[Rfam]
RNA sequence: AUGUCAUUUCAAAGGGAGCGUGUGGGGCUGUGAAACCCAGAGCUCUUAACACCAUGACCAAAUAUCGAAGUUUUCUGUAAGGCACCAUAGUCACUCAAUAGUGCUUUGUCUUCCUGCGGAGGUAUAAGA
Numbered sequence: 001a002u003g004u005c006a007u008u009u010c011a012a013a014g015g016g017a018g019c020g021u022g023u024g025g026g027g028c029u030g031u032g033a034a035a036c037c038c039a040g041a042g043c044u045c046u047u048a049a050c051a052c053c054a055u056g057a058c059c060a061a062a063u064a065u066c067g068a069a070g071u072u073u074u075c076u077g078u079a080a081g082g083c084a085c086c087a088u089a090g091u092c093a094c095u096c097a098a099u100a101g102u103g104c105u106u107u108g109u110c111u112u113c114c115u116g117c118g119g120a121g122g123u124a125u126a127a128g129a
Stems, first nucleotide, its partner, number of pairs: 003058005014047006021040001023039001026037002072122005079115001081113002087107001089105002092103004
About this RNA
Shown here is a 129-nucleotide sequence from Prolemur simus, a member of the family "Small nucleolar RNA SNORA25". Its family is annotated with RNA processing and nucleolus in the Gene Ontology. It is annotated as an H/ACA-box small nucleolar RNA. Rfam describes the family as follows. ACA25 is a member of the H/ACA class of snoRNA that guide the sites of modification of uridines to pseudouridines. The base pairs follow the family's consensus structure, which was predicted with RNAfold. A search with the family's covariance model found it, with a score of 101 bits.